Rfam assigns this 121-nucleotide RNA from an Anaplasmataceae bacterium to the family "Ribosomal protein L10 leader".
[Rfam]
RNA sequence: GCUACAGUAUCCCCACUGCCUAAGACAGCAGGUUGUGGGAUAAAACCACAUAAAGCCUGCCGAGGAAAAGCUAGUUUCUAGCUAUUCUUGCGACCUUAGGAGGUCGUUUUCUUUUUUUUAA
Numbered sequence: 001g002c003u004a005c006a007g008u009a010u011c012c013c014c015a016c017u018g019c020c021u022a023a024g025a026c027a028g029c030a031g032g033u034u035g036u037g038g039g040a041u042a043a044a045a046c047c048a049c050a051u052a053a054a055g056c057c058u059g060c061c062g063a064g065g066a067a068a069a070g071c072u073a074g075u076u077u078c079u080a081g082c083u084a085u086u087c088u089u090g091c092g093a094c095c096u097u098a099g100g101a102g103g104u105c106g107u108u109u110u111c112u113u114u115u116u117u118u119u120a121a
Base pairs, nucleotide, nucleotide: 028060029059030058031057032056033055035049036048037047091106092105093104094103095102096101

The family's RNA type in Rfam is cis-regulatory leader.